[Rfam]
RNA: SAM/SAH riboswitch aptamer
RNA sequence: AAUCCCCCACAACGGCUUCCUGGCGUGGCGGUGACAUCAAAUGGAGCA
Numbered sequence: 001a002a003u004c005c006c007c008c009a010c011a012a013c014g015g016c017u018u019c020c021u022g023g024c025g026u027g028g029c030g031g032u033g034a035c036a037u038c039a040a041a042u043g044g045a046g047c048a
Stems, first nucleotide, its partner, number of pairs: 004031002007028004013022002015047003019044002